A member of the RNA family "U7 small nuclear RNA" from Erinaceus europaeus, 62 nucleotides long. The source organism's lineage runs through Eukaryota, Bilateria, Gnathostomata, Amniota and Erinaceus. The family's consensus secondary structure was predicted with PFOLD.
[Rfam]
RNA sequence: CAGUGUUACAGCUCUUUUAGAAUUUGUCUAGCAGGUCUUCCGGUUCCUACCGGAAGGCCCCC
Dot-bracket structure: .................................(((((((((((....)))))))))))...